[Rfam]
RNA sequence: CCAACGGCCCUUUUAAGGGCCACCACAUUUUCCUAAGAGCUGCGU
Numbered sequence: 001c002c003a004a005c006g007g008c009c010c011u012u013u014u015a016a017g018g019g020c021c022a023c024c025a026c027a028u029u030u031u032c033c034u035a036a037g038a039g040c041u042g043c044g045u
Base pairs, nucleotide, nucleotide: 006021007020008019009018010017011016